[Rfam]
RNA: MIR397 microRNA precursor family
RNA sequence: AUCAAAAGCAUCAUUGAGUGCAGCGUUGAUGAAACUCUGCAUCCUGUUGGGCGAUCCAUCGCACCAAAGGUUUGAGGAAUUCACCAGCACUGCACUCAAUCAUGUCUUUG
Numbered sequence: 001a002u003c004a005a006a007a008g009c010a011u012c013a014u015u016g017a018g019u020g021c022a023g024c025g026u027u028g029a030u031g032a033a034a035c036u037c038u039g040c041a042u043c044c045u046g047u048u049g050g051g052c053g054a055u056c057c058a059u060c061g062c063a064c065c066a067a068a069g070g071u072u073u074g075a076g077g078a079a080u081u082c083a084c085c086a087g088c089a090c091u092g093c094a095c096u097c098a099a100u101c102a103u104g105u106c107u108u109u110g
Stems, first nucleotide, its partner, number of pairs: 006107001008105004013100011025088004030083003